The record is a 71-nucleotide sequence from Pseudolycoriella hygida, which matches "mir-1175 microRNA precursor family" in Rfam.
[Rfam]
RNA sequence: UGAAGUAAGUGGAGUAGUGGUCUCAUCGCUUUGUUUUAGAAAGUGAGAUUCAACUUCUCCUACUUACUGCA
Numbered sequence: 001u002g003a004a005g006u007a008a009g010u011g012g013a014g015u016a017g018u019g020g021u022c023u024c025a026u027c028g029c030u031u032u033g034u035u036u037u038a039g040a041a042a043g044u045g046a047g048a049u050u051c052a053a054c055u056u057c058u059c060c061u062a063c064u065u066a067c068u069g070c071a
Base pairs, nucleotide, nucleotide: 007065008064009063011060012059013058014057016056017055018053023048024047026046027045028044029043030042031041

Pairs were carried over by alignment from the consensus structure, which was predicted with RNAalifold.